[Rfam]
RNA sequence: AUCUGUUUUUAUGGUAUAGGCCGGUGGGAGUGUGGGGCAAGAUCGUUGGCUCGCUCUGCGCUAUCGCCGGUGUGCUCACCAUCGCAUUGCCGGUUCCCGUCAUCGUGUCAAAC
Dot-bracket structure: .(.((.(.(.(.(((...(((..............((((........(((.........)))..........))))................)))...))).).).).)).).
Numbered sequence: 001a002u003c004u005g006u007u008u009u010u011a012u013g014g015u016a017u018a019g020g021c022c023g024g025u026g027g028g029a030g031u032g033u034g035g036g037g038c039a040a041g042a043u044c045g046u047u048g049g050c051u052c053g054c055u056c057u058g059c060g061c062u063a064u065c066g067c068c069g070g071u072g073u074g075c076u077c078a079c080c081a082u083c084g085c086a087u088u089g090c091c092g093g094u095u096c097c098c099g100u101c102a103u104c105g106u107g108u109c110a111a112a113c
Stems, first nucleotide, its partner, number of pairs: 002112001004110002007107001009105001011103001013101003019095003036076004048062003